[Rfam]
RNA sequence: CAUGCACUGGUGGGGUCCCUUGGCCUGGCCUGCGGGGAUCGGGCGGAAACCGGCUCUCCAACAUCCUCUGAGGGGUCCCAGAUUGCAAAAGGGCGCAGGCCAGGCCGAGGGACCCCACCGGUGCACA
Numbered sequence: 001c002a003u004g005c006a007c008u009g010g011u012g013g014g015g016u017c018c019c020u021u022g023g024c025c026u027g028g029c030c031u032g033c034g035g036g037g038a039u040c041g042g043g044c045g046g047a048a049a050c051c052g053g054c055u056c057u058c059c060a061a062c063a064u065c066c067u068c069u070g071a072g073g074g075g076u077c078c079c080a081g082a083u084u085g086c087a088a089a090a091g092g093g094c095g096c097a098g099g100c101c102a103g104g105c106c107g108a109g110g111g112a113c114c115c116c117a118c119c120g121g122u123g124c125a126c127a
Stems, first nucleotide, its partner, number of pairs: 003125002006122001008120003012116014027101008
The family of this 127-nucleotide sequence from Cnephaeus nilssonii is "mir-9193 microRNA precursor family". Pairs were carried over by alignment from the consensus structure, which was predicted with RNAalifold.